[Rfam]
RNA sequence: GGAAUCGUUGUCGUAAUAGUAAUUCAACUUAGUACGAGAGGAACUGUUGAUUCAGAUAAUUGGUCUUUGCGCCUGUCCGAUCGGGCAAUGGCGCGAAGCUACCAUCUGCUGGAUCAUGGCUGAACGCCUCUAAGCCAGAAUCCGUACUAGAAACGACGAUGUUGUCUUCCCACGAACUUUAUAAAAAGUUGCGUAUCGAUAGAGCUUCCUCGGAACUCGUGAACCAUAGACUGGAAGUGCCCGGCCAGCGGAAAGGCUGUGUCGGGUCUCCAUGAAUUGCAUCAUCAAACAUUCGUGGGAGUGAAUCCCUUGCAGACGACUUGACUGGAACAGAGUGCUGUAAGCAGUAGAGUAGCCUUGUUGCUACGAUCUGCUGAGGCUAAGCUCUCGUUCUAAAGAUUUGU
Numbered sequence: 001g002g003a004a005u006c007g008u009u010g011u012c013g014u015a016a017u018a019g020u021a022a023u024u025c026a027a028c029u030u031a032g033u034a035c036g037a038g039a040g041g042a043a044c045u046g047u048u049g050a051u052u053c054a055g056a057u058a059a060u061u062g063g064u065c066u067u068u069g070c071g072c073c074u075g076u077c078c079g080a081u082c083g084g085g086c087a088a089u090g091g092c093g094c095g096a097a098g099c100u101a102c103c104a105u106c107u108g109c110u111g112g113a114u115c116a117u118g119g120c121u122g123a124a125c126g127c128c129u130c131u132a133a134g135c136c137a138g139a140a141u142c143c144g145u146a147c148u149a150g151a152a153a154c155g156a157c158g159a160u161g162u163u164g165u166c167u168u169c170c171c172a173c174g175a176a177c178u179u180u181a182u183a184a185a186a187a188g189u190u191g192c193g194u195a196u197c198g199a200u201a202g203a204g205c206u207u208c209c210u211c212g213g214a215a216c217u218c219g220u221g222a223a224c225c226a227u228a229g230a231c232u233g234g235a236a237g238u239g240c241c242c243g244g245c246c247a248g249c250g251g252a253a254a255g256g257c258u259g260u261g262u263c264g265g266g267u268c269u270c271c272a273u274g275a276a277u278u279g280c281a282u283c284a285u286c287a288a289a290c291a292u293u294c295g296u297g298g299g300a301g302u303g304a305a306u307c308c309c310u311u312g313c314a315g316a317c318g319a320c321u322u323g324a325c326u327g328g329a330a331c332a333g334a335g336u337g338c339u340g341u342a343a344g345c346a347g348u349a350g351a352g353u354a355g356c357c358u359u360g361u362u363g364c365u366a367c368g369a370u371c372u373g374c375u376g377a378g379g380c381u382a383a384g385c386u387c388u389c390g391u392u393c394u395a396a397a398g399a400u401u402u403g404u
Stems, first nucleotide, its partner, number of pairs: 007160008017149004022052001024050005053108005061101003068095005074087005110144003117137005169299007303402005309323001312320001327394005333387003337380002344374004349370001352367005
Rfam assigns this 404-nucleotide part of an RNA from Mixia osmundae to the family "Eukaryotic large subunit ribosomal RNA". The sequence is in the family's curated seed alignment.